RNA sequence: AUUAAAUAUAGAUCCAGACCAAAGACCGUAGGUGGUUUUACCUUAAUACCCUACCGAGGUUGGAGAGAAGGUAUUCGCUAGCCUCAAAGAGUGUAAGUAAGCCUCCGAUCCUAUCUUUGGGUCGGAGGUUAUUUUUUAGAUGA
Dot-bracket structure: ...........................(((((.(((...))).......)))))...............................................((((((((((.......))))))))))...............

This 143-nucleotide RNA sequence from Cetobacterium ceti belongs to the Rfam family "Ribosomal protein L10 leader". The match comes from Rfam's covariance-model search (79 bits). It is annotated as a cis-regulatory leader.